[Rfam]
RNA sequence: CGGAGGACUGAGAAGGUGAGGCAGUUCUGAACCAUGCUGCCUUCCACUGGUUAAGACCUCCGAGAGCGAAGGCCUGCAGAGGCAGAGGAAGUCCCUCUGCCGCCCCCAGAGGGGCAGCACUGUGUUGGCCGACACUUG
Numbered sequence: 001c002g003g004a005g006g007a008c009u010g011a012g013a014a015g016g017u018g019a020g021g022c023a024g025u026u027c028u029g030a031a032c033c034a035u036g037c038u039g040c041c042u043u044c045c046a047c048u049g050g051u052u053a054a055g056a057c058c059u060c061c062g063a064g065a066g067c068g069a070a071g072g073c074c075u076g077c078a079g080a081g082g083c084a085g086a087g088g089a090a091g092u093c094c095c096u097c098u099g100c101c102g103c104c105c106c107c108a109g110a111g112g113g114g115c116a117g118c119a120c121u122g123u124g125u126u127g128g129c130c131g132a133c134a135c136u137u138g
Base pairs, nucleotide, nucleotide: 002061003060004059005058006057015048016047017046018045019042020041021040022039023038024037025036081130082129083128086126087125089123091121097117098116099115100114101113103112104111

Small nucleolar RNA SNORA47: a 138-nucleotide sequence from Bos taurus. On this family, see Huttenhofer et al., EMBO J 2001: "RNomics: an experimental approach that identifies 201 candidates for novel, small, non-messenger RNAs in mouse". The family's RNA type in Rfam is H/ACA-box small nucleolar RNA. The base pairs follow the family's consensus structure, which was predicted with WAR. Gene Ontology terms of the family: nucleolus and RNA processing. The source organism's lineage runs through Eukaryota, Teleostomi, Mammalia, Laurasiatheria and Bos.